[Rfam]
RNA sequence: GAAGGACUUGUGGCCCUUCGACGUCGCCCUGCGGGGGGAGGCGUCAAACCACCCCGAGGGGCGUUAGCCGAAGACUGUCGUGCCGAGCGUCGGGGAAAAGGCGGAGGUGAGACUCCGUCAGGU
Numbered sequence: 001g002a003a004g005g006a007c008u009u010g011u012g013g014c015c016c017u018u019c020g021a022c023g024u025c026g027c028c029c030u031g032c033g034g035g036g037g038g039a040g041g042c043g044u045c046a047a048a049c050c051a052c053c054c055c056g057a058g059g060g061g062c063g064u065u066a067g068c069c070g071a072a073g074a075c076u077g078u079c080g081u082g083c084c085g086a087g088c089g090u091c092g093g094g095g096a097a098a099a100g101g102c103g104g105a106g107g108u109g110a111g112a113c114u115c116c117g118u119c120a121g122g123u
Base pairs, nucleotide, nucleotide: 001019002018003017004016005015020045021044022043023042024041025040027038028037029036030035050122052095053094054093055092056091057090058084059083061081062080063079065077066076067075100119101118102117103116104115105114
RNA: Group II catalytic intron D1-D4-2
Organism: Nonomuraea phyllanthi